[Rfam]
RNA sequence: UUUACUUAAUGAAGACACUUCUUGAAACCAUUUUUGUGAGAGGAGUUUCUGAUGAAGCUGUAAA
Numbered sequence: 001u002u003u004a005c006u007u008a009a010u011g012a013a014g015a016c017a018c019u020u021c022u023u024g025a026a027a028c029c030a031u032u033u034u035u036g037u038g039a040g041a042g043g044a045g046u047u048u049c050u051g052a053u054g055a056a057g058c059u060g061u062a063a064a
Stems, first nucleotide, its partner, number of pairs: 001064005014049002017046007029038003
RNA: Selenocysteine insertion sequence 1